[Rfam]
RNA: TPP riboswitch aptamer (THI element)
RNA sequence: AGCAGUGACACGGGGUGCCGCAUCCGCGGCUGAGAACAGACCCGUCGAACCUGAUCUAGUUAGCACUAGCGAAGGGAAUGUCGCAUGAGCGAUCU
Numbered sequence: 001a002g003c004a005g006u007g008a009c010a011c012g013g014g015g016u017g018c019c020g021c022a023u024c025c026g027c028g029g030c031u032g033a034g035a036a037c038a039g040a041c042c043c044g045u046c047g048a049a050c051c052u053g054a055u056c057u058a059g060u061u062a063g064c065a066c067u068a069g070c071g072a073a074g075g076g077a078a079u080g081u082c083g084c085a086u087g088a089g090c091g092a093u094c095u
Base pairs, nucleotide, nucleotide: 006083007082008081009080010079011044012043013042014041016038017030018029019028020027021026050075051074052073056069057068058067059066